[Rfam]
RNA sequence: CACACAUUUAUUGUGAUGAUCAACAAGGGACUUAAUACUGAUGUCUGAUGUCACCUUUGUAUUAUUCUGAAUGUGU
Numbered sequence: 001c002a003c004a005c006a007u008u009u010a011u012u013g014u015g016a017u018g019a020u021c022a023a024c025a026a027g028g029g030a031c032u033u034a035a036u037a038c039u040g041a042u043g044u045c046u047g048a049u050g051u052c053a054c055c056u057u058u059g060u061a062u063u064a065u066u067c068u069g070a071a072u073g074u075g076u
Stems, first nucleotide, its partner, number of pairs: 002076008
RNA: Small nucleolar RNA SNORD82